RNA: Purine riboswitch aptamer
RNA sequence: UUAUAACCACAUAAAUUAACUCGUAUAUGCUCCUAAUAAGGAGGAGCGUCUCUACAGGUCACCGUAAACGACCUACUAUGAGUGAAAAAAUUAAGUAU
Numbered sequence: 001u002u003a004u005a006a007c008c009a010c011a012u013a014a015a016u017u018a019a020c021u022c023g024u025a026u027a028u029g030c031u032c033c034u035a036a037u038a039a040g041g042a043g044g045a046g047c048g049u050c051u052c053u054a055c056a057g058g059u060c061a062c063c064g065u066a067a068a069c070g071a072c073c074u075a076c077u078a079u080g081a082g083u084g085a086a087a088a089a090a091u092u093a094a095g096u097a098u
Stems, first nucleotide, its partner, number of pairs: 019083007029047006056074005